[Rfam]
RNA: Actinobacteria sRNA Ms_AS-4
RNA sequence: CUUGGCGUUGGUGUAGCGGUCGACGUCGUCGCUGAAUUCACCGAGCCCCGGGCGGCGAGGAUGACACCGAUUCCUGGCAGG
Dot-bracket structure: .......((((((....(((..(.........)..))))))))).........(.(.((((..........))))).)...